The record is a 158-nucleotide RNA sequence from Consotaella salsifontis, which matches "6S / SsrS RNA" in Rfam. The base pairs follow the family's consensus structure, which is taken from published work.

RNA sequence: GGCGGGCUGCGCGGUUCGGCAGGCGUAACUUUUCCUCGGGGCCUUAGUCAUUCCGAAGGGAGCUGUCCCUGACUUGGCCCGUGGGCCAGGAUAUACGGCGCCCACCUACAUCGUAGGUUCCCGGGAUCGACUUCGUCACCGGCCGAUGUGGCUCGCCA
Numbered sequence: 001g002g003c004g005g006g007c008u009g010c011g012c013g014g015u016u017c018g019g020c021a022g023g024c025g026u027a028a029c030u031u032u033u034c035c036u037c038g039g040g041g042c043c044u045u046a047g048u049c050a051u052u053c054c055g056a057a058g059g060g061a062g063c064u065g066u067c068c069c070u071g072a073c074u075u076g077g078c079c080c081g082u083g084g085g086c087c088a089g090g091a092u093a094u095a096c097g098g099c100g101c102c103c104a105c106c107u108a109c110a111u112c113g114u115a116g117g118u119u120c121c122c123g124g125g126a127u128c129g130a131c132u133u134c135g136u137c138a139c140c141g142g143c144c145g146a147u148g149u150g151g152c153u154c155g156c157c158a
Stems, first nucleotide, its partner, number of pairs: 002156010012145004017141003033126004038121006058103003062099005071092001073090007
Dot-bracket structure: .((((((((((((((.(((.............((((.((((((..............(((.(((((....(.(((((((....))))))).)..))))).)))............)))))).))))............))))))).))))))))))..
From the family's description: E. coli 6S RNA was the first non coding RNA to be sequenced, but its function was unknown until recently. It consists of 184 nucleotides that fold into an extended hairpin structure with a large single-stranded internal bulge. The 6S RNA specifically associates with RNA polymerase holoenzyme containing the sigma70 specificity factor. The family's RNA type in Rfam is non-coding RNA gene. For this family Rfam cites "6S RNA in Rhodobacter sphaeroides: 6S RNA and pRNA transcript levels peak in late exponential phase and gene deletion causes a high salt stress phenotype" (Elkina et al., RNA Biol, 2017). It scores 86 bits against the family's covariance model. The source organism's lineage runs through Bacteria, Pseudomonadota, Alphaproteobacteria, Aurantimonadaceae and Consotaella.